A member of the RNA family "Ribosomal protein L10 leader" from Exobacillus caeni, 137 nucleotides long. The family's consensus secondary structure was predicted with CMfinder. NCBI's taxonomy places the organism under Bacteria, Bacillati, Bacillota, Bacilli, Exobacillus.

Nucleotides: 137
Stems, first nucleotide, its partner, number of pairs: 028056005034044003096122010
Number, partner (000 for none) and nucleotide at each position: 001000u002000a003000g004000u005000u006000a007000a008000u009000a010000a011000u012000u013000u014000c015000u016000a017000u018000a019000c020000c021000g022000u023000a024000g025000a026000c027000a028056g029055u030054a031053g032052g033000u034044g035043c036042u037000u038000a039000c040000a041000a042036g043035g044034c045000u046000u047000a048000a049000u050000u051000u052032c053031c054030u055029a056028c057000c058000g059000a060000g061000g062000u063000g064000u065000u066000a067000a068000g069000a070000u071000a072000a073000u074000c075000g076000a077000u078000u079000u080000u081000g082000a083000u084000u085000c086000g087000g088000a089000u090000a091000u092000c093000u094000a095000u096122g097121c098120c099119u100118u101117c102116a103115u104114g105113u106000c107000u108000a109000c110000g111000u112000g113105a114104c115103g116102u117101g118100a119099a120098g121097g122096c123000u124000u125000u126000u127000u128000u129000a130000a131000u132000g133000c134000c135000a136000u137000g